This 130-nucleotide sequence from Burkholderia pseudomallei belongs to the Rfam family "Burkholderia sRNA 2". The family's RNA type in Rfam is small RNA. Upregulated in response to iron ion depletion. Predicted targets include MerR family transcriptional regulator. Pairs were carried over by alignment from the consensus structure, which was predicted with RNAfold.
[Rfam]
Nucleotides: 130
Stems, first nucleotide, its partner, number of pairs: 007038002009035001011033002014029002041080003046072001054065004083094004095124006104116004
Number, partner (000 for none) and nucleotide at each position: 001000a002000u003000g004000a005000a006000u007038g008037c009035c010000u011033g012032u013000c014029c015028g016000a017000c018000c019000c020000a021000u022000u023000u024000u025000u026000c027000u028015c029014g030000u031000a032012g033011c034000u035009g036000c037008g038007c039000c040000g041080g042079u043078g044000g045000u046072c047000c048000a049000a050000a051000c052000g053000a054065u055064g056063c057062g058000c059000c060000c061000a062057c063056g064055c065054g066000c067000c068000u069000g070000a071000c072046g073000c074000g075000c076000a077000g078043c079042a080041c081000g082000a083094c084093g085092g086091u087000u088000a089000a090000a091086g092085c093084c094083g095124a096123g097122c098121c099120g100119c101000u102000c103000g104116c105115c106114c107113c108000u109000g110000u111000u112000c113107g114106g115105g116104g117000g118000a119100g120099c121098g122097g123096c124095u125000u126000u127000u128000u129000u130000u